[Rfam]
RNA sequence: CUAAAUAUUGUACAUAACCUUCAUAUAUCCUCGAUAAUAUGGAUCGAAAGUCUCUACCGAAUCACCGUAAAUGAUUUGACUAUGAAGGCAGAAAUUUCUGUU
Numbered sequence: 001c002u003a004a005a006u007a008u009u010g011u012a013c014a015u016a017a018c019c020u021u022c023a024u025a026u027a028u029c030c031u032c033g034a035u036a037a038u039a040u041g042g043a044u045c046g047a048a049a050g051u052c053u054c055u056a057c058c059g060a061a062u063c064a065c066c067g068u069a070a071a072u073g074a075u076u077u078g079a080c081u082a083u084g085a086a087g088g089c090a091g092a093a094a095u096u097u098c099u100g101u102u
Stems, first nucleotide, its partner, number of pairs: 018088008031047005058078007
RNA: Purine riboswitch aptamer
Organism: Bacillus sp. cl95